[Rfam]
RNA sequence: GUCAUACUACGGUGCAUCGCCCUGUAAAGUAAACGAUGACCCAUAGUGAACUUCAGGGUAAAAUACGUAUCAAAUUGAAAAUUGCUGCUGGCCUGGGGAUGACUUUCCGGGUCGGUUUUCUUU
Numbered sequence: 001g002u003c004a005u006a007c008u009a010c011g012g013u014g015c016a017u018c019g020c021c022c023u024g025u026a027a028a029g030u031a032a033a034c035g036a037u038g039a040c041c042c043a044u045a046g047u048g049a050a051c052u053u054c055a056g057g058g059u060a061a062a063a064u065a066c067g068u069a070u071c072a073a074a075u076u077g078a079a080a081a082u083u084g085c086u087g088c089u090g091g092c093c094u095g096g097g098g099a100u101g102a103c104u105u106u107c108c109g110g111g112u113c114g115g116u117u118u119u120c121u122u123u
Stems, first nucleotide, its partner, number of pairs: 001040005010035002014030002041048001057071004087116011
The record is a 123-nucleotide RNA sequence from Klebsiella michiganensis, which matches "Enterobacteria greA leader" in Rfam.
For this family Rfam cites "Premature terminator analysis sheds light on a hidden world of bacterial transcriptional attenuation" (Naville and Gautheret, Genome Biol, 2010).
NCBI's taxonomy places the organism under Bacteria, Gammaproteobacteria, Enterobacterales, Enterobacteriaceae, Klebsiella.
Its family is annotated with regulation of gene expression in the Gene Ontology.
Pairs were carried over by alignment from the consensus structure, which is taken from published work.